[Rfam]
RNA sequence: CUCUUAUCGAGAGCGGCGGAGGGAAUAGGCCCUGUGAAGCCCGGCAACCAUCAAGCGAAAGCUUGAAAAGGUGCUAAAUCCUGCAGAUCAAUUGAUCUGAAAGAUGAGGG
Numbered sequence: 001c002u003c004u005u006a007u008c009g010a011g012a013g014c015g016g017c018g019g020a021g022g023g024a025a026u027a028g029g030c031c032c033u034g035u036g037a038a039g040c041c042c043g044g045c046a047a048c049c050a051u052c053a054a055g056c057g058a059a060a061g062c063u064u065g066a067a068a069a070g071g072u073g074c075u076a077a078a079u080c081c082u083g084c085a086g087a088u089c090a091a092u093u094g095a096u097c098u099g100a101a102a103g104a105u106g107a108g109g110g
Base pairs, nucleotide, nucleotide: 001110002109003108004107005106006105007104008103013042015041016040017039021032022031023030026083027082028081029080043075044074045073046072048071049070051066052065053064079102084099085098086097087096088095089094